[Rfam]
RNA: Selenocysteine transfer RNA
RNA sequence: GCUCAGCUGAGCUUCGGUGGUCCGGAGUGCAGGCUUCAAACCUGUAGCCGCCUAACGGCGGAGUGGUUCAAUUCCACCUGCUGAGU
Numbered sequence: 001g002c003u004c005a006g007c008u009g010a011g012c013u014u015c016g017g018u019g020g021u022c023c024g025g026a027g028u029g030c031a032g033g034c035u036u037c038a039a040a041c042c043u044g045u046a047g048c049c050g051c052c053u054a055a056c057g058g059c060g061g062a063g064u065g066g067u068u069c070a071a072u073u074c075c076a077c078c079u080g081c082u083g084a085g086u
Stems, first nucleotide, its partner, number of pairs: 001086007009078001012027006028046006048061005063077004